[Rfam]
RNA sequence: AUACUCCACAUUUAUUUGUGGGGUGUUUUUAAUUUAAAGAAACGCCUUGAGAUAUUUCCUAGUAGUUAUAAAAAUUAAUUAGUAUUGAAUAUCACGACUACAUUUUUGAAAAGUGAUGUAGAUUUAUAGCCAUAAUUUUUAGAUUUACAUUGACGAUACUGCAUCAAAAGAAAAA
Numbered sequence: 001a002u003a004c005u006c007c008a009c010a011u012u013u014a015u016u017u018g019u020g021g022g023g024u025g026u027u028u029u030u031a032a033u034u035u036a037a038a039g040a041a042a043c044g045c046c047u048u049g050a051g052a053u054a055u056u057u058c059c060u061a062g063u064a065g066u067u068a069u070a071a072a073a074a075u076u077a078a079u080u081a082g083u084a085u086u087g088a089a090u091a092u093c094a095c096g097a098c099u100a101c102a103u104u105u106u107u108g109a110a111a112a113g114u115g116a117u118g119u120a121g122a123u124u125u126a127u128a129g130c131c132a133u134a135a136u137u138u139u140u141a142g143a144u145u146u147a148c149a150u151u152g153a154c155g156a157u158a159c160u161g162c163a164u165c166a167a168a169a170g171a172a173a174a175a
Stems, first nucleotide, its partner, number of pairs: 001026009039059001041057002044053001046051001062101005075088005106143002108140002111138004115131001118130002150167004155162001